[Rfam]
RNA: Burkholderia sRNA Bp1_Cand738_SIPHT
Organism: Caballeronia concitans
RNA sequence: GCGAAAACCGGCGUGAGAAACGCCGGCAGUGACAACCAACAGCCAUGAAUCGCCGGGCAGGUACGGCGCAGGCGACGCACAGCGUCUGAAGAAAACCUGAGGCAGCGGUGAAAAAUUUCAAAACCUGCAACUGAUGCGAAGCGAUUCUAGCAGGGUUUAAUGAUCCGUCAAUGCUAUAGCUUUGUGUUUCAAUUACUUACAGUAA
Numbered sequence: 001g002c003g004a005a006a007a008c009c010g011g012c013g014u015g016a017g018a019a020a021c022g023c024c025g026g027c028a029g030u031g032a033c034a035a036c037c038a039a040c041a042g043c044c045a046u047g048a049a050u051c052g053c054c055g056g057g058c059a060g061g062u063a064c065g066g067c068g069c070a071g072g073c074g075a076c077g078c079a080c081a082g083c084g085u086c087u088g089a090a091g092a093a094a095a096c097c098u099g100a101g102g103c104a105g106c107g108g109u110g111a112a113a114a115a116u117u118u119c120a121a122a123a124c125c126u127g128c129a130a131c132u133g134a135u136g137c138g139a140a141g142c143g144a145u146u147c148u149a150g151c152a153g154g155g156u157u158u159a160a161u162g163a164u165c166c167g168u169c170a171a172u173g174c175u176a177u178a179g180c181u182u183u184g185u186g187u188u189u190c191a192a193u194u195a196c197u198u199a200c201a202g203u204a205a
Stems, first nucleotide, its partner, number of pairs: 008026007043108002046105001051068005074086005135173002140168001143165001148162002